[Rfam]
RNA sequence: UGAAUAAAAGGUGAUGGAGUUCACCUGAAAUGCGUAAUGCUGAUGACUCCUACAGGAAU
Numbered sequence: 001u002g003a004a005u006a007a008a009a010g011g012u013g014a015u016g017g018a019g020u021u022c023a024c025c026u027g028a029a030a031u032g033c034g035u036a037a038u039g040c041u042g043a044u045g046a047c048u049c050c051u052a053c054a055g056g057a058a059u
Stems, first nucleotide, its partner, number of pairs: 010025004016050006032040002

Rfam assigns this 59-nucleotide sequence from Acetivibrio thermocellus to the family "Fluoride riboswitch aptamer (crcB RNA motif)". Gene Ontology terms of the family: positive regulation of gene expression and response to fluoride. NCBI's taxonomy places the organism under Bacteria, Clostridia, Acetivibrionaceae, Acetivibrio, Acetivibrio thermocellus.